[Rfam]
Rfam assigns this 81-nucleotide RNA sequence from Ignelater luminosus to the family "mir-31 microRNA precursor family". Lineage of the source: Eukaryota > Insecta > Neuropteroidea > Coleoptera > Ignelater. A search with the family's covariance model found it, with a score of 62 bits. Rfam links the family to the GO terms RISC complex and gene silencing by miRNA. On this family, see Ma et al., bioRxiv [Preprint] 2023: "Structure of pre-miR-31 reveals an active role in Dicer processing".
RNA sequence: GAAGGCCGAGAAGGCAAGAUGUCGGCAUAGCUGAGAGUAUUUGAAUAACGGCUAUGUCGCAUCCAGCCAACUUACGUCUGC
Numbered sequence: 001g002a003a004g005g006c007c008g009a010g011a012a013g014g015c016a017a018g019a020u021g022u023c024g025g026c027a028u029a030g031c032u033g034a035g036a037g038u039a040u041u042u043g044a045a046u047a048a049c050g051g052c053u054a055u056g057u058c059g060c061a062u063c064c065a066g067c068c069a070a071c072u073u074a075c076g077u078c079u080g081c
Stems, first nucleotide, its partner, number of pairs: 008073003013068003018063004023059009